[Rfam]
RNA sequence: GUUGGCCACGCGUAUUCUUGGGGAAUCAACACGAAUUUGAUAGAUGUUAUUGCUUGAGAAUACACGUAGUUGAC
Numbered sequence: 001g002u003u004g005g006c007c008a009c010g011c012g013u014a015u016u017c018u019u020g021g022g023g024a025a026u027c028a029a030c031a032c033g034a035a036u037u038u039g040a041u042a043g044a045u046g047u048u049a050u051u052g053c054u055u056g057a058g059a060a061u062a063c064a065c066g067u068a069g070u071u072g073a074c
Base pairs, nucleotide, nucleotide: 001074002073003072004071005070008067009066010065012063013062014061015060016059017058018057019056020055021054022053025051028048029047030046031045032043

A member of the RNA family "mir-137 microRNA precursor family" from Frankliniella occidentalis, 74 nucleotides long. On this family, see Ruby et al., Genome Res 2007: "Evolution, biogenesis, expression, and target predictions of a substantially expanded set of Drosophila microRNAs". Gene Ontology terms of the family: RISC complex and miRNA-mediated post-transcriptional gene silencing. Its Rfam clan is "mir-137 clan". The base pairs follow the family's consensus structure, which was predicted with RNAalifold.